[Rfam]
RNA sequence: UUCUUAUCGAGAGAGACGGAGGGAUAGGCCCAGCGAUGUCUCAGCAACCAGCCUCAGGCACGGUGCUAAUUCCAAGGGUGACACCACCUUGAAGAUGAGAA
Numbered sequence: 001u002u003c004u005u006a007u008c009g010a011g012a013g014a015g016a017c018g019g020a021g022g023g024a025u026a027g028g029c030c031c032a033g034c035g036a037u038g039u040c041u042c043a044g045c046a047a048c049c050a051g052c053c054u055c056a057g058g059c060a061c062g063g064u065g066c067u068a069a070u071u072c073c074a075a076g077g078g079u080g081a082c083a084c085c086a087c088c089u090u091g092a093a094g095a096u097g098a099g100a101a
Stems, first nucleotide, its partner, number of pairs: 001101008013042005021031003027073002043067004048063002051059003071093001075090006